This 144-nucleotide RNA from Drosophila albomicans belongs to the Rfam family "Small nucleolar RNA psi28S-1192". The family's consensus secondary structure was predicted with ILM. The match comes from Rfam's covariance-model search (120 bits). Rfam links the family to the GO terms RNA processing and nucleolus.

RNA sequence: UUUAUGUCCAGUCUAAUUCUGCGUCAUGACACUGGAUAUUGAUGCAGACUCGCUUUUGGACGAUAGUAAUUAAUCAACUCUUUUAUUAUCCUUGUGCUGGAUGCUAACCUCAUCUGUGCACACGAGAAACGUAAAAGAACAAAU
Numbered sequence: 001u002u003u004a005u006g007u008c009c010a011g012u013c014u015a016a017u018u019c020u021g022c023g024u025c026a027u028g029a030c031a032c033u034g035g036a037u038a039u040u041g042a043u044g045c046a047g048a049c050u051c052g053c054u055u056u057u058g059g060a061c062g063a064u065a066g067u068a069a070u071u072a073a074u075c076a077a078c079u080c081u082u083u084u085a086u087u088a089u090c091c092u093u094g095u096g097c098u099g100g101a102u103g104c105u106a107a108c109c110u111c112a113u114c115u116g117u118g119c120a121c122a123c124g125a126g127a128a129a130c131g132u133a134a135a136a137g138a139a140c141a142a143a144u
Stems, first nucleotide, its partner, number of pairs: 005062006019047008027038002079138008091126006
Dot-bracket structure: ....((((((........((((((((((........)).)))))))).........))))))................((((((((....((((((........................))))))....))))))))......